Shown here is a 121-nucleotide sequence from Streptomyces finlayi, a member of the family "Streptomyces-metH RNA". Pairs were carried over by alignment from the consensus structure, which is taken from published work. NCBI's taxonomy places the organism under Bacteria, Bacillati, Actinomycetota, Actinomycetes, Streptomyces. A search with the family's covariance model found it, with a score of 101 bits.

RNA sequence: CCGUCCGCCCCGUGGGACGCCGUGACGGGCCGUGGUGCCUCCCGGCUACGCUGGCCGGGCGCGCCCUCCGCAGGAAGGCCGCAAAGCCGACAGCCGUCGCAUCCCAGGGAGAACAUCCAUG
Numbered sequence: 001c002c003g004u005c006c007g008c009c010c011c012g013u014g015g016g017a018c019g020c021c022g023u024g025a026c027g028g029g030c031c032g033u034g035g036u037g038c039c040u041c042c043c044g045g046c047u048a049c050g051c052u053g054g055c056c057g058g059g060c061g062c063g064c065c066c067u068c069c070g071c072a073g074g075a076a077g078g079c080c081g082c083a084a085a086g087c088c089g090a091c092a093g094c095c096g097u098c099g100c101a102u103c104c105c106a107g108g109g110a111g112a113a114c115a116u117c118c119a120u121g
Base pairs, nucleotide, nucleotide: 061082062081063080065077067075068074086100087099089098090097091096